[Rfam]
RNA sequence: AACAGCUUCAAGUCAAUAAAGACUAAGAAAAUCGACUCAAGAAAAGA
Numbered sequence: 001a002a003c004a005g006c007u008u009c010a011a012g013u014c015a016a017u018a019a020a021g022a023c024u025a026a027g028a029a030a031a032u033c034g035a036c037u038c039a040a041g042a043a044a045a046g047a
Base pairs, nucleotide, nucleotide: 007041008040011037012036013035014034016032017031
RNA: Plastid-rpl16 group II-D1 intron